This 88-nucleotide sequence from Helobdella robusta belongs to the Rfam family "mir-87 microRNA precursor family".
It scores 51 bits against the family's covariance model.
The family has 44 seed sequences and 420 matches in Rfam 15.1.
For this family Rfam cites "Temporal regulation of microRNA expression in Drosophila melanogaster mediated by hormonal signals and broad-Complex gene activity" (Sempere et al., Dev Biol, 2003).
[Rfam]
Nucleotides: 088
Stems, first nucleotide, its partner, number of pairs: 002086001004084004009079005015073001017071005024065004029061003
Number, partner (000 for none) and nucleotide at each position: 001000c002086g003000u004084c005083a006082g007081c008000a009079u010078g011077c012076c013075u014000u015073a016000g017071a018070g019069u020068u021067u022000g023000u024065c025064u026063c027062a028000a029061c030060c031059u032000u033000a034000a035000c036000a037000a038000u039000c040000u041000a042000c043000a044000u045000u046000c047000a048000c049000u050000u051000u052000u053000a054000a055000a056000c057000g058000a059031a060030g061029g062027u063026g064025a065024g066000c067021a068020a069019a070018c071017u072000u073015u074000c075013a076012g077011g078010u079009g080000u081007g082006u083005u084004g085000u086002u087000u088000u